[Rfam]
RNA sequence: GCAGCGUCACCGCCUAAUCGGCCACCUCCAUUCGGGUGGUCGUACCGGGAACCCACCGUUUCAUUUGGGGUGAAUCCCGUCGAGCCGCAAUCCGGCGUCGACGGGUAGGGCUGAUCUUCCCAGCCCGAACCCGUCAGCUAACUCGGUCGGCGGACGAAUGGAAGAAAU
Numbered sequence: 001g002c003a004g005c006g007u008c009a010c011c012g013c014c015u016a017a018u019c020g021g022c023c024a025c026c027u028c029c030a031u032u033c034g035g036g037u038g039g040u041c042g043u044a045c046c047g048g049g050a051a052c053c054c055a056c057c058g059u060u061u062c063a064u065u066u067g068g069g070g071u072g073a074a075u076c077c078c079g080u081c082g083a084g085c086c087g088c089a090a091u092c093c094g095g096c097g098u099c100g101a102c103g104g105g106u107a108g109g110g111c112u113g114a115u116c117u118u119c120c121c122a123g124c125c126c127g128a129a130c131c132c133g134u135c136a137g138c139u140a141a142c143u144c145g146g147u148c149g150g151c152g153g154a155c156g157a158a159u160g161g162a163a164g165a166a167a168u
Base pairs, nucleotide, nucleotide: 011152012151013150014149019042020041021040022039023038024037025036026035027034044147045146046145047144048143049142054067055066068132069131070130076105077104078103079102080101081100082099083098108126109125110124111123
RNA: c-di-AMP riboswitch aptamer (ydaO/yuaA leader)